[Rfam]
RNA sequence: AUUUAUACGCAAUGUUUCUCUCAUAUAAUAGCGGGGAUAUGGCCUGCGAGUUUCUACCCAAAAACCGAAUAAAUUUUUGGACUAUGAGGGAAAGCACAUUCUCA
Numbered sequence: 001a002u003u004u005a006u007a008c009g010c011a012a013u014g015u016u017u018c019u020c021u022c023a024u025a026u027a028a029u030a031g032c033g034g035g036g037a038u039a040u041g042g043c044c045u046g047c048g049a050g051u052u053u054c055u056a057c058c059c060a061a062a063a064a065c066c067g068a069a070u071a072a073a074u075u076u077u078u079g080g081a082c083u084a085u086g087a088g089g090g091a092a093a094g095c096a097c098a099u100u101c102u103c104a
Stems, first nucleotide, its partner, number of pairs: 018090008029049001031047005058080007